[Rfam]
RNA sequence: ACAAAAUUAUUUUUGCAAUAUGUUCCUGAUAUAUGUAAGAUGAAUGUAUUGGGAGUAUCUUGCAUCCAUAGUUUUGUAUC
Numbered sequence: 001a002c003a004a005a006a007u008u009a010u011u012u013u014u015g016c017a018a019u020a021u022g023u024u025c026c027u028g029a030u031a032u033a034u035g036u037a038a039g040a041u042g043a044a045u046g047u048a049u050u051g052g053g054a055g056u057a058u059c060u061u062g063c064a065u066c067c068a069u070a071g072u073u074u075u076g077u078a079u080c
Stems, first nucleotide, its partner, number of pairs: 004074007014064005020058014